This 131-nucleotide RNA from Salvator merianae belongs to the Rfam family "Small Cajal body specific RNA 8". scaRNAs are a specific class of small nuclear RNAs which localise to the Cajal bodies and guide the modification of RNA polymerase II transcribed spliceosomal RNAs U1, U2, U4, U5 and U12. U92 belong to the H/ACA box class of guide RNAs as it has the predicted hairpin-hinge-hairpin-tail structure, conserved H/ACA-box motifs and is found associated with GAR1. A search with the family's covariance model found it, with a score of 129 bits. The source organism's lineage runs through Eukaryota, Vertebrata, Dipnotetrapodomorpha, Unidentata and Salvator. For this family Rfam cites "Cajal body-specific small nuclear RNAs: a novel class of 2'-O-methylation and pseudouridylation guide RNAs" (Darzacq et al., EMBO J, 2002).

[Rfam]
RNA sequence: UGGGAGGCCGAUACUCAAAUAGAGAUAAGCUCUGCUCUAGUUGUCACUAGUCCUCCCUAUAUUAAAGCUGCCUUUCGAUGACCGGGACGAACUGAGAGAAAUCGUAACGGACAGAUACGGGGCAUAUAAUU
Numbered sequence: 001u002g003g004g005a006g007g008c009c010g011a012u013a014c015u016c017a018a019a020u021a022g023a024g025a026u027a028a029g030c031u032c033u034g035c036u037c038u039a040g041u042u043g044u045c046a047c048u049a050g051u052c053c054u055c056c057c058u059a060u061a062u063u064a065a066a067g068c069u070g071c072c073u074u075u076c077g078a079u080g081a082c083c084g085g086g087a088c089g090a091a092c093u094g095a096g097a098g099a100a101a102u103c104g105u106a107a108c109g110g111a112c113a114g115a116u117a118c119g120g121g122g123c124a125u126a127u128a129a130u131u
Base pairs, nucleotide, nucleotide: 002057003056004055005054006053007052016043017042018041022037023036024035069124070123071122072121073120074119082110083109084108087105088104089103090102